[Rfam]
RNA sequence: AAUUUGCCGAAAAGUGCGUUAGGGAUUGAUGCGGCAUCCUUUUUUUGCUAGAUUAAACUUAAAAAACCGACAAUAACCACUUGGUUUGUCUGUAAUUUAACAAAACCAACUUUAUAAAGUUGCAUAAAAAAGAUAUAGCGGAAAGCCCGAUCCUUG
Numbered sequence: 001a002a003u004u005u006g007c008c009g010a011a012a013a014g015u016g017c018g019u020u021a022g023g024g025a026u027u028g029a030u031g032c033g034g035c036a037u038c039c040u041u042u043u044u045u046u047g048c049u050a051g052a053u054u055a056a057a058c059u060u061a062a063a064a065a066a067c068c069g070a071c072a073a074u075a076a077c078c079a080c081u082u083g084g085u086u087u088g089u090c091u092g093u094a095a096u097u098u099a100a101c102a103a104a105a106c107c108a109a110c111u112u113u114a115u116a117a118a119g120u121u122g123c124a125u126a127a128a129a130a131a132g133a134u135a136u137a138g139c140g141g142a143a144a145g146c147c148c149g150a151u152c153c154u155u156g
Stems, first nucleotide, its partner, number of pairs: 022148003026144002031139002036134003041129004046124003
RNA: Flavo-1 RNA